[Rfam]
Overview: Rfam assigns this 375-nucleotide sequence from Maricaulis virginensis to the family "Alphaproteobacteria transfer-messenger RNA". Its family is annotated with RNA catabolic process in the Gene Ontology.
RNA sequence: CCCCUUCAACUCGCCACAUUUCCUGCCUAUAUUCCCCGGUGUCGGCUUGCCGACUAUGGCGAUAAACGCGCUCGUAAUAACCGGACCGGACCCGGGGGCAGUACCCGGCGGCUCCACCAUAUCCUUCCCUGCACCACCUUCAGCAAGUGGCCGGGCUGGCAUGGGGCCGAAACAGGAUCGACGGACGGGUAAAGGGGAUUGCUUUCGCCCGGGUGAGGCCCGUUACAGGCUCGCUUAUGAAAGUUGCCAACGACAACUUUGCUGAAGAGGUCGCUCUCGCUGCGUAGUCAGCGCGGGUAAUCUCGCUUUAAAGUCCUGGACCCUUUAGCCGGUCCAGGCGGGGUCCGGAGGCGCCUGGCAACAGAAGCCUCCACU
Dot-bracket structure: ........................................(((((....)))))...(((((.....((((((........((..(((...(((((.......)))))(((((((...............................................)))))))............))).)).......)))..)))..)))))(((([[[.[)))).......]]]]...........................................................................................................[[[[..((((((]]]]..........))))))...
The literature on the family includes a 2002 paper in Nucleic Acids Res by Laslett et al., "BRUCE: a program for the detection of transfer-messenger RNA genes in nucleotide sequences". Its Rfam clan is "tRNA clan". NCBI's taxonomy places the organism under Bacteria, Pseudomonadota, Alphaproteobacteria, Maricaulales, Maricaulis.